RNA sequence: UCACCAUCCAUCACGCCUUACCAGGACUAAACAGCGUGACUAAACAACAGUCCUUCAUACCCACUCUGGAGGGUAGAGUGGGAAUACUAUACUCA
Number, nucleotide and partner (000 for none) at each position: 001u000002c000003a000004c000005c000006a000007u000008c000009c000010a000011u000012c038013a037014c036015g035016c034017c000018u000019u033020a000021c000022c000023a054024g053025g052026a051027c050028u000029a000030a000031a000032c000033a019034g016035c015036g014037u013038g012039a000040c000041u000042a000043a000044a000045c000046a000047a000048c000049a000050g027051u026052c025053c024054u023055u000056c000057a000058u000059a000060c082061c081062c080063a079064c078065u077066c076067u000068g000069g000070a000071g000072g000073g000074u000075a000076g066077a065078g064079u063080g062081g061082g060083a000084a000085u000086a000087c000088u000089a000090u000091a000092c000093u000094c000095a000
Shown here is a 95-nucleotide sequence, a member of the family "PhotoRC-II RNA". Rfam classes the family as a cis-regulatory element.